[Rfam]
RNA sequence: UGAUCCGCGAGGAGAAGUCUGGAGGAAGCCGCUAGCAAAGCUGCGAGCUGAUGAACAAGAACGUCAUAUGAGGCGUAGGCUGGAGGCGAGUUGGCACAAGACAACGAAGCCAUGUGAUCUAACGGCCACCGUAAAUGACGCAGUUGUGCAGUGAAGGUUCAAGCU
Numbered sequence: 001u002g003a004u005c006c007g008c009g010a011g012g013a014g015a016a017g018u019c020u021g022g023a024g025g026a027a028g029c030c031g032c033u034a035g036c037a038a039a040g041c042u043g044c045g046a047g048c049u050g051a052u053g054a055a056c057a058a059g060a061a062c063g064u065c066a067u068a069u070g071a072g073g074c075g076u077a078g079g080c081u082g083g084a085g086g087c088g089a090g091u092u093g094g095c096a097c098a099a100g101a102c103a104a105c106g107a108a109g110c111c112a113u114g115u116g117a118u119c120u121a122a123c124g125g126c127c128a129c130c131g132u133a134a135a136u137g138a139c140g141c142a143g144u145u146g147u148g149c150a151g152u153g154a155a156g157g158u159u160c161a162a163g164c165u
Base pairs, nucleotide, nucleotide: 001016004013005012006011028165030163035158036157040152041151042150043149044148045147046145047144048143049142050141062140063139064138065137066136067135073132074131075130078127079126080125081124082123085111086110087109090105091104092103093102
RNA: Group II catalytic intron D1-D4-3